Nucleotides: 087
Base pairs, nucleotide, nucleotide: 001086002085003084004083005082006081007080010026011025012024028044029043030042031041032040063079064078065077066076067075
Number, partner (000 for none) and nucleotide at each position: 001086g002085g003084a004083u005082a006081g007080u008000u009000g010026g011025c012024c013000g014000a015000g016000u017000g018000g019000c020000u021000g022000a023000a024012g025011g026010c027000g028044c029043u030042c031041c032040c033000c034000u035000g036000c037000u038000a039000a040032g041031g042030g043029a044028g045000u046000a047000u048000g049000g050000g051000u052000u053000a054000a055000c056000g057000c058000u059000c060000a061000u062000c063079g064078a065077g066076g067075g068000u069000u070000c071000g072000a073000a074000u075067c076066c077065c078064u079063c080007a081006c082005u083004g084003u085002c086001c087000g

tRNA: an 87-nucleotide RNA sequence from Terasakiella magnetica.
The family's consensus secondary structure is taken from published work.
It is annotated as a transfer RNA.